This 110-nucleotide RNA from Dokdonia pacifica belongs to the Rfam family "6S-Flavo RNA".
The base pairs follow the family's consensus structure, which is taken from published work.
The source organism's lineage runs through Bacteria, Pseudomonadati, Bacteroidota, Flavobacteriaceae and Dokdonia.
The match comes from Rfam's covariance-model search (94 bits).
By type it is a small RNA.
RNA sequence: ACUCAACAGAUAUAUUUUUGUAAAGAGUGAAUCUGGAUUGUAAAAGCGCGCCGUCUUCGUCACGGAUUCUUGAUCAGUCCUCUAGCUCUAAUCCUUUUAUUUAGGAGUUU
Numbered sequence: 001a002c003u004c005a006a007c008a009g010a011u012a013u014a015u016u017u018u019u020g021u022a023a024a025g026a027g028u029g030a031a032u033c034u035g036g037a038u039u040g041u042a043a044a045a046g047c048g049c050g051c052c053g054u055c056u057u058c059g060u061c062a063c064g065g066a067u068u069c070u071u072g073a074u075c076a077g078u079c080c081u082c083u084a085g086c087u088c089u090a091a092u093c094c095u096u097u098u099a100u101u102u103a104g105g106a107g108u109u110u
Stems, first nucleotide, its partner, number of pairs: 024089005035080005044071003051065004